[Rfam]
RNA sequence: UACGGUGAGGUAGUAGGUUGUAUAGUUUAGAAUAUUACUCUCGGUGAACUAUGCAAGUUUCUACCUCACCGAA
Numbered sequence: 001u002a003c004g005g006u007g008a009g010g011u012a013g014u015a016g017g018u019u020g021u022a023u024a025g026u027u028u029a030g031a032a033u034a035u036u037a038c039u040c041u042c043g044g045u046g047a048a049c050u051a052u053g054c055a056a057g058u059u060u061c062u063a064c065c066u067c068a069c070c071g072a073a
Base pairs, nucleotide, nucleotide: 001073003071004070005069006068007067008066009065010064011063012062013061015059016058018056019055020054021053022052023051024050025049026048030040031039033037
RNA: let-7 microRNA precursor family